Overview
This 79-nucleotide RNA from Oncorhynchus mykiss belongs to the Rfam family "mir-144 microRNA precursor family".
RNA sequence: AUCCUGGACAGGAUAUCAUCAUAUACUGUAAGUUCGUUAUGGUGACACUACAGUAUAGAUGAUGUACUAUCCAGGGUCU
Dot-bracket structure: ......((.((.((((((((.(((((((((.(((.........)))..))))))))))))))))).)).))........